Rfam assigns this 101-nucleotide RNA sequence from Arabidopsis thaliana to the family "Small nucleolar RNA R64/Z200 family". Its family is annotated with RNA processing and nucleolus in the Gene Ontology. The organism belongs to Arabidopsis, within Eukaryota. The base pairs follow the family's consensus structure, which was predicted with PFOLD. It is annotated as a C/D-box small nucleolar RNA. The family has 14 seed sequences and 748 matches in Rfam 15.1.

RNA sequence: CUUCUGCUAUGAUGAUUUUUUGAAUAAAUUUUACAUGUCAGACUUUUAGAGAUUUUUGUUUAUCAUUAAGAAUCUUUGAUAAUAAAAAAUCAGAGCAGAAG
Numbered sequence: 001c002u003u004c005u006g007c008u009a010u011g012a013u014g015a016u017u018u019u020u021u022g023a024a025u026a027a028a029u030u031u032u033a034c035a036u037g038u039c040a041g042a043c044u045u046u047u048a049g050a051g052a053u054u055u056u057u058g059u060u061u062a063u064c065a066u067u068a069a070g071a072a073u074c075u076u077u078g079a080u081a082a083u084a085a086a087a088a089a090u091c092a093g094a095g096c097a098g099a100a101g
Stems, first nucleotide, its partner, number of pairs: 001101007051064003